[Rfam]
RNA: F6 TB sRNA
Organism: Nocardia vermiculata
RNA sequence: AGAUCGGCUCCGUGCAGUUGCCAGACCCCCGACCCGGCAACCGCACGGAGCCGUCUG
Numbered sequence: 001a002g003a004u005c006g007g008c009u010c011c012g013u014g015c016a017g018u019u020g021c022c023a024g025a026c027c028c029c030c031g032a033c034c035c036g037g038c039a040a041c042c043g044c045a046c047g048g049a050g051c052c053g054u055c056u057g
Base pairs, nucleotide, nucleotide: 002056005053007051008050009049010048011047012046013045014044015043017041018040019039020038021037022036